[Rfam]
RNA sequence: CAUGAAUCUGGGGAAAACAUUUCUGCGCACACACCAGACUAUUGAAACCAGUGUGUGGAAAUGCGUCUGCUGCAUUCUUA
Numbered sequence: 001c002a003u004g005a006a007u008c009u010g011g012g013g014a015a016a017a018c019a020u021u022u023c024u025g026c027g028c029a030c031a032c033a034c035c036a037g038a039c040u041a042u043u044g045a046a047a048c049c050a051g052u053g054u055g056u057g058g059a060a061a062u063g064c065g066u067c068u069g070c071u072g073c074a075u076u077c078u079u080a
Stems, first nucleotide, its partner, number of pairs: 002079001004077004009072003013068001015066001018063012032051001